This 268-nucleotide sequence from Leptonychotes weddellii belongs to the Rfam family "bip internal ribosome entry site (IRES)". Its family is annotated with ribosome binding in the Gene Ontology. On this family, see Kim and Jang, Biochem Biophys Res Commun 2002: "Continuous heat shock enhances translational initiation directed by internal ribosomal entry site". Rfam's curators write: This family represents the bip internal ribosome entry site (IRES). BiP protein expression has been found to be significantly enhanced by the heat shock response due to IRES-dependent translation. It is thought that this translational mechanism is essential for the survival of cells under stress. A search with the family's covariance model found it, with a score of 169 bits.

[Rfam]
RNA sequence: CGCUGGCCGGGACAUCACACAAUCAUCGACUUGGGGGAUUUUUGUGCGUCUGAGAGGUAAGCGCCGCGGCCUGUCUUUCCGGACCUGCCCUUCGCCUUGUCUGCUGCUCCUGCUGACCCCGGGCCCUGUACCCUCAGAUCAGUAAGCUCGGUGCGCUCGGGUGCGGCGGCCUGUGGCAGGAUUGCCUGUGACGUCCUGCCUGCCUGCUGACCGACUGGCCUACGGCGCCGGCAACAUGAAGCUGUCCCUGGUGGCUGCGGUGCUGCUG
Number, nucleotide and partner (000 for none) at each position: 001c000002g000003c000004u257005g256006g255007c254008c253009g252010g000011g000012a000013c000014a000015u000016c163017a162018c161019a000020c159021a000022a000023u000024c000025a000026u000027c000028g000029a000030c000031u000032u122033g000034g120035g119036g118037g117038a000039u000040u000041u000042u000043u000044g000045u000046g000047c000048g000049u000050c000051u000052g000053a000054g000055a000056g000057g000058u000059a000060a000061g109062c000063g107064c106065c000066g104067c103068g102069g101070c000071c000072u000073g000074u000075c000076u000077u000078u000079c000080c000081g000082g000083a000084c000085c000086u000087g000088c000089c000090c000091u000092u000093c000094g000095c000096c000097u000098u000099g000100u000101c069102u068103g067104c066105u000106g064107c063108u000109c061110c000111u000112g000113c000114u000115g000116a000117c037118c036119c035120c034121g000122g032123g000124c000125c000126c000127u000128g000129u000130a000131c000132c000133c000134u000135c000136a000137g000138a000139u000140c000141a000142g000143u000144a000145a000146g000147c000148u000149c000150g000151g000152u000153g000154c000155g000156c000157u000158c000159g020160g000161g018162u017163g016164c000165g000166g000167c179168g000169g177170c176171c175172u000173g000174u000175g171176g170177c169178a000179g167180g000181a000182u000183u000184g000185c000186c000187u000188g000189u000190g000191a000192c000193g000194u000195c000196c000197u000198g000199c000200c000201u000202g000203c000204c000205u000206g000207c000208u000209g000210a000211c000212c000213g000214a000215c000216u000217g000218g000219c000220c000221u000222a000223c000224g000225g000226c000227g000228c000229c000230g000231g000232c000233a000234a000235c000236a000237u000238g000239a000240a000241g000242c000243u000244g000245u000246c000247c000248c000249u000250g000251g000252u009253g008254g007255c006256u005257g004258c000259g000260g000261u000262g000263c000264u000265g000266c000267u000268g000